Overview: Alphaproteobacteria transfer-messenger RNA: a 348-nucleotide RNA from Yoonia litorea. Pairs were carried over by alignment from the consensus structure, which is taken from published work. It scores 300 bits against the family's covariance model. Its family is annotated with RNA catabolic process in the Gene Ontology. The organism belongs to Yoonia, within Bacteria.
RNA sequence: GCCCUUGCAGCACCCCGCCCCCCGCCUUAUCUAUAGGAUGUCCUUCGGGACUAUGGACAUAAACGCGCUCGUAAUAAGCGGAUCGGACCCGGGGGCGGUACCCGGCGGCUCCACCAAAAUCCUUCAUUUGGGGAUCAUGGGGCCGAAACAGGAUCGACGAACGUCUAAAGGGGUUUGCUUUGUCUCGGUGAGAUACCACCGUUAUCGGUUCACAUAAGCUAGUUGCAAAUGACAACAAAGCACCGAUGGCACUCGCAGCCUAAGCUGCGCGUAAUAUCGAAAUCUAACUCCUGAGGUUUUGCGACCUCAGGCGGGGUUCGCAGGUACCUGGCAACAGAAACCUGCAUU
Numbered sequence: 001g002c003c004c005u006u007g008c009a010g011c012a013c014c015c016c017g018c019c020c021c022c023c024g025c026c027u028u029a030u031c032u033a034u035a036g037g038a039u040g041u042c043c044u045u046c047g048g049g050a051c052u053a054u055g056g057a058c059a060u061a062a063a064c065g066c067g068c069u070c071g072u073a074a075u076a077a078g079c080g081g082a083u084c085g086g087a088c089c090c091g092g093g094g095g096c097g098g099u100a101c102c103c104g105g106c107g108g109c110u111c112c113a114c115c116a117a118a119a120u121c122c123u124u125c126a127u128u129u130g131g132g133g134a135u136c137a138u139g140g141g142g143c144c145g146a147a148a149c150a151g152g153a154u155c156g157a158c159g160a161a162c163g164u165c166u167a168a169a170g171g172g173g174u175u176u177g178c179u180u181u182g183u184c185u186c187g188g189u190g191a192g193a194u195a196c197c198a199c200c201g202u203u204a205u206c207g208g209u210u211c212a213c214a215u216a217a218g219c220u221a222g223u224u225g226c227a228a229a230u231g232a233c234a235a236c237a238a239a240g241c242a243c244c245g246a247u248g249g250c251a252c253u254c255g256c257a258g259c260c261u262a263a264g265c266u267g268c269g270c271g272u273a274a275u276a277u278c279g280a281a282a283u284c285u286a287a288c289u290c291c292u293g294a295g296g297u298u299u300u301g302c303g304a305c306c307u308c309a310g311g312c313g314g315g316g317u318u319c320g321c322a323g324g325u326a327c328c329u330g331g332c333a334a335c336a337g338a339a340a341c342c343u344g345c346a347u348u
Stems, first nucleotide, its partner, number of pairs: 040051004055185005065178002067174004079163002083160003089105005106145007186201004192211002195209003314329004320345006